[Rfam]
Rfam assigns this 118-nucleotide RNA from Mergibacter septicus to the family "Ribosomal S15 leader". Rfam links the family to the GO term regulation of translation, ncRNA-mediated. The E. coli Ribosomal S15 gene 5' UTR can form two alternative structures. The base pairs follow the family's consensus structure, which is taken from published work. Clan: Ribosomal Protein S15 Leader clan. A search with the family's covariance model found it, with a score of 100 bits.

RNA sequence: UGUCGUAGCUGGAUUAGAGAUCGGCUAACGAUGUAUUUUAACUUAUAACUAGGAGUUAUUUAUGUCUCUAAAUGCAGAAGCAAAGGCAAAAAUUGUUGCUGAAUUUGGUCGUGAUGCG
Dot-bracket structure: ......((((((........)))))).......................(.((((..........)))).)...............................................